[Rfam]
RNA sequence: UUGCACUUGUAUCAAGGCCUCUCUAAUUAUAGUAGUGCGGCCUGAGCCAGGUGCAUAAAGUGAAUGCUGUUACAUCAGCAGCAGCCAGACAACUGCAGAGAUGGAUCCACUGGUGAAUGGCUAAUGUGCUACUUGCCUACUAUUUCCAUCUCACAUCU
Numbered sequence: 001u002u003g004c005a006c007u008u009g010u011a012u013c014a015a016g017g018c019c020u021c022u023c024u025a026a027u028u029a030u031a032g033u034a035g036u037g038c039g040g041c042c043u044g045a046g047c048c049a050g051g052u053g054c055a056u057a058a059a060g061u062g063a064a065u066g067c068u069g070u071u072a073c074a075u076c077a078g079c080a081g082c083a084g085c086c087a088g089a090c091a092a093c094u095g096c097a098g099a100g101a102u103g104g105a106u107c108c109a110c111u112g113g114u115g116a117a118u119g120g121c122u123a124a125u126g127u128g129c130u131a132c133u134u135g136c137c138u139a140c141u142a143u144u145u146c147c148a149u150c151u152c153a154c155a156u157c158u
Base pairs, nucleotide, nucleotide: 002055003054004053005052006051009047010046012045013044015043016042017041018040019039021037023035024034025033098152099151100150101149102148103147104146105145116134117133118131119130120129

Background: Rfam assigns this 158-nucleotide RNA sequence from Nyssa sinensis to the family "small nucleolar RNA snoR143". It is annotated as an H/ACA-box small nucleolar RNA.